RNA sequence: GCACUUCACAACAACCCUGUCAGAUCUGUUCAGUGUUUGAUGUGGGUAAAGCUGGUGCCAUAGAGACUCAAAGUGAAUCCAGAUAAACCUCUUCCUUUGGAGGCUGUCUCUACAACUUUGAUACACAA
Numbered sequence: 001g002c003a004c005u006u007c008a009c010a011a012c013a014a015c016c017c018u019g020u021c022a023g024a025u026c027u028g029u030u031c032a033g034u035g036u037u038u039g040a041u042g043u044g045g046g047u048a049a050a051g052c053u054g055g056u057g058c059c060a061u062a063g064a065g066a067c068u069c070a071a072a073g074u075g076a077a078u079c080c081a082g083a084u085a086a087a088c089c090u091c092u093u094c095c096u097u098u099g100g101a102g103g104c105u106g107u108c109u110c111u112a113c114a115a116c117u118u119u120g121a122u123a124c125a126c127a128a
Stems, first nucleotide, its partner, number of pairs: 001058005014047004019041001021039002068121006081109005088102001094100002

Background: Rfam assigns this 128-nucleotide RNA from Channa argus to the family "Small nucleolar RNA SNORA55". Gene Ontology terms of the family: RNA processing and nucleolus. Taxonomically the source falls in Channa (Eukaryota, Neoteleostei, Acanthomorphata, Percomorphaceae). By type it is an H/ACA-box small nucleolar RNA. From the family's description: ACA55 is a member of the H/ACA class of snoRNA that guide the sites of modification of uridines to pseudouridines.